[Rfam]
RNA sequence: CAAACGGCCCUCUUUAGGGCCACAAAUAUAAUAAGUGAAACGAGA
Numbered sequence: 001c002a003a004a005c006g007g008c009c010c011u012c013u014u015u016a017g018g019g020c021c022a023c024a025a026a027u028a029u030a031a032u033a034a035g036u037g038a039a040a041c042g043a044g045a
Base pairs, nucleotide, nucleotide: 006021007020008019009018010017011016
About this RNA
Shown here is a 45-nucleotide RNA sequence from Meloidogyne enterolobii, a member of the family "Histone 3' UTR stem-loop". The family's consensus secondary structure is taken from published work. The source organism's lineage runs through Eukaryota, Opisthokonta, Metazoa, Nematoda and Meloidogyne. A search with the family's covariance model found it, with a score of 34 bits. The mRNAs of metazoan histone genes lack a poly-A tail. 3' end processing occurs at a site between a highly conserved stem-loop (modelled by this family) and a purine rich region around 20 nts downstream (the histone downstream element, or HDE).